[Rfam]
This 543-nucleotide part of an RNA from Coleofasciculus chthonoplastes belongs to the Rfam family "Bacterial large subunit ribosomal RNA".
The sequence is in the family's curated seed alignment.
RNA sequence: UACAAAGAGCUAACGGUGGAUACCUAGGCACACAGAGGCGAAGAAGGACGUGGCGACCGACGAUACACUCCGGGGAGCUGGAAGCAAGCGUUGAGCCGGAGGUUUCCGAAUGGGGCAACCCCAAGUACGGCUGACUGAAUCCAUAGGUCAGCACGAGCCAACCCAGCCAACUGAAACAUCUUAGUAGCUGGAGGAAAAGAAAGCAAAAGCGAUUCCCCCAGUAGCGGCGAGCGAAAAGGGACCAGCCUAAACCAUCUAGCAUGCUAGAUGGGGUAGUGGGACAGCCAUAAGGGAAUACCCGAGGCUAGACGAAGUUGUUGAAUGCAACACCAAAGAAGGUGAAAGUCCUGUAGUCGAAAGCCAAAGGAUACCGGCUGUAUCCCGAGUAGCACGGGGCACGAGAAAUCCCGUGUGAAUCAGCGAAGACCACUUCGUAAGGCUAAAUACUCCUGUGUGACCGAUAGCGAAACAGUACCGCGAGGGAAAGGUGAAAAGAACCCCGGAAGGGGAGUGAAAUAGAACAUGAAACCGUUAGCUUACAAG
Numbered sequence: 001u002a003c004a005a006a007g008a009g010c011u012a013a014c015g016g017u018g019g020a021u022a023c024c025u026a027g028g029c030a031c032a033c034a035g036a037g038g039c040g041a042a043g044a045a046g047g048a049c050g051u052g053g054c055g056a057c058c059g060a061c062g063a064u065a066c067a068c069u070c071c072g073g074g075g076a077g078c079u080g081g082a083a084g085c086a087a088g089c090g091u092u093g094a095g096c097c098g099g100a101g102g103u104u105u106c107c108g109a110a111u112g113g114g115g116c117a118a119c120c121c122c123a124a125g126u127a128c129g130g131c132u133g134a135c136u137g138a139a140u141c142c143a144u145a146g147g148u149c150a151g152c153a154c155g156a157g158c159c160a161a162c163c164c165a166g167c168c169a170a171c172u173g174a175a176a177c178a179u180c181u182u183a184g185u186a187g188c189u190g191g192a193g194g195a196a197a198a199g200a201a202a203g204c205a206a207a208a209g210c211g212a213u214u215c216c217c218c219c220a221g222u223a224g225c226g227g228c229g230a231g232c233g234a235a236a237a238g239g240g241a242c243c244a245g246c247c248u249a250a251a252c253c254a255u256c257u258a259g260c261a262u263g264c265u266a267g268a269u270g271g272g273g274u275a276g277u278g279g280g281a282c283a284g285c286c287a288u289a290a291g292g293g294a295a296u297a298c299c300c301g302a303g304g305c306u307a308g309a310c311g312a313a314g315u316u317g318u319u320g321a322a323u324g325c326a327a328c329a330c331c332a333a334a335g336a337a338g339g340u341g342a343a344a345g346u347c348c349u350g351u352a353g354u355c356g357a358a359a360g361c362c363a364a365a366g367g368a369u370a371c372c373g374g375c376u377g378u379a380u381c382c383c384g385a386g387u388a389g390c391a392c393g394g395g396g397c398a399c400g401a402g403a404a405a406u407c408c409c410g411u412g413u414g415a416a417u418c419a420g421c422g423a424a425g426a427c428c429a430c431u432u433c434g435u436a437a438g439g440c441u442a443a444a445u446a447c448u449c450c451u452g453u454g455u456g457a458c459c460g461a462u463a464g465c466g467a468a469a470c471a472g473u474a475c476c477g478c479g480a481g482g483g484a485a486a487g488g489u490g491a492a493a494a495g496a497a498c499c500c501c502g503g504a505a506g507g508g509g510a511g512u513g514a515a516a517u518a519g520a521a522c523a524u525g526a527a528a529c530c531g532u533u534a535g536c537u538u539a540c541a542a543g
Stems, first nucleotide, its partner, number of pairs: 007538010023488002027459002029456007036448002038158002046107003049062003068101006077089003112121003128155002130152007162193001163191005173180002203210002213444001214241004224232002244441004252271007278383003282377005295369002298367002303362004308355003314328005331335001337349003389413008420435005475482002498509004
The source organism's lineage runs through Bacteria, Bacillati, Cyanophyceae, Coleofasciculaceae and Coleofasciculus chthonoplastes.
The base pairs follow the family's consensus structure, which is taken from published work.